Record summary
A member of the RNA family "Makes More Granules Regulator RNA (mmgR)" from Afifella marina, 72 nucleotides long. SuhB later renamed mmgR (makes more granules regulator) was a putative non-coding RNA found multiple times in the Agrobacterium tumefaciens genome and related alpha-proteobacteria. Its Rfam clan is "suhB sRNA clan". Rfam classes the family as a small RNA. The base pairs follow the family's consensus structure. A search with the family's covariance model found it, with a score of 63 bits. The source organism's lineage runs through Bacteria, Alphaproteobacteria, Hyphomicrobiales, Afifellaceae and Afifella marina.
RNA sequence: UAUCGCAGCCCUCAUUGGGCGUUUCCUCCCUAGACUUGGCCGCACCUCGGUGCGGCCAUUUUUCUUUCUAGC
Number, nucleotide and partner (000 for none) at each position: 001u000002a000003u000004c000005g000006c000007a000008g020009c019010c018011c017012u000013c000014a000015u000016u000017g011018g010019g009020c008021g000022u000023u000024u000025c000026c000027u000028c000029c000030c000031u000032a000033g000034a000035c000036u000037u000038g057039g056040c055041c054042g053043c052044a051045c050046c000047u000048c000049g000050g045051u044052g043053c042054g041055g040056c039057c038058a000059u000060u000061u000062u000063u000064c000065u000066u000067u000068c000069u000070a000071g000072c000